[Rfam]
RNA sequence: GCCGAGUGGAGUUACGUUUGCUUGUAACCCAAGUGGGGGCAAUAAUAUGGUUGGACAUUGGUUUGAUUUGCUGAGUUGGGCACAUCUGGUCUUGAUCACGGCUUGCCCGUUCCAAGCUAGGAGUUGAGUCUUGAAACUUGUGCGGAAGCCUGGGUUUCGUGAUUCCUGGAGAGGAAGGCACAGCGUGAGGCUGGUUUCACAGAGCAGCGACAACUUCCCUUUCUUGGCAGUGGAAGGAUAACAAGAUGGGUCCAUCAUAGCUCAGUGGGUUGCUCCCAAUUGGACAAUCACUUUU
Numbered sequence: 001g002c003c004g005a006g007u008g009g010a011g012u013u014a015c016g017u018u019u020g021c022u023u024g025u026a027a028c029c030c031a032a033g034u035g036g037g038g039g040c041a042a043u044a045a046u047a048u049g050g051u052u053g054g055a056c057a058u059u060g061g062u063u064u065g066a067u068u069u070g071c072u073g074a075g076u077u078g079g080g081c082a083c084a085u086c087u088g089g090u091c092u093u094g095a096u097c098a099c100g101g102c103u104u105g106c107c108c109g110u111u112c113c114a115a116g117c118u119a120g121g122a123g124u125u126g127a128g129u130c131u132u133g134a135a136a137c138u139u140g141u142g143c144g145g146a147a148g149c150c151u152g153g154g155u156u157u158c159g160u161g162a163u164u165c166c167u168g169g170a171g172a173g174g175a176a177g178g179c180a181c182a183g184c185g186u187g188a189g190g191c192u193g194g195u196u197u198c199a200c201a202g203a204g205c206a207g208c209g210a211c212a213a214c215u216u217c218c219c220u221u222u223c224u225u226g227g228c229a230g231u232g233g234a235a236g237g238a239u240a241a242c243a244a245g246a247u248g249g250g251u252c253c254a255u256c257a258u259a260g261c262u263c264a265g266u267g268g269g270u271u272g273c274u275c276c277c278a279a280u281u282g283g284a285c286a287a288u289c290a291c292u293u294u295u
Stems, first nucleotide, its partner, number of pairs: 001040003004023007028037003044294002048290006056282002058279003061275001064272003068268010078253004083248003092245002104243002107237002110235005116228008126165005132159009142149002166171001173218005184209003191202003
The family of this 295-nucleotide RNA sequence from Hibiscus trionum is "Plant signal recognition particle RNA". The family's RNA type in Rfam is non-coding RNA gene. The family has 63 seed sequences and 4,988 matches in Rfam 15.1. The match comes from Rfam's covariance-model search (203 bits).